[Rfam]
RNA sequence: AAUCAUAAAGUGUGGUAGAAAGAAUUAUAUGUAGUUCUUUCUACCACACUUUAGAUUCUUUCUAUUAUAUUAUCUUGAAUCUACAUAG
Numbered sequence: 001a002a003u004c005a006u007a008a009a010g011u012g013u014g015g016u017a018g019a020a021a022g023a024a025u026u027a028u029a030u031g032u033a034g035u036u037c038u039u040u041c042u043a044c045c046a047c048a049c050u051u052u053a054g055a056u057u058c059u060u061u062c063u064a065u066u067a068u069a070u071u072a073u074c075u076u077g078a079a080u081c082u083a084c085a086u087a088g
Base pairs, nucleotide, nucleotide: 006053007052008051009050010049011048012047013046014045015044016043017042018041019040020039021038022037023036024035025034026033027032
RNA: Plastid-psbM 3UTR RNA
Organism: Digitaria exilis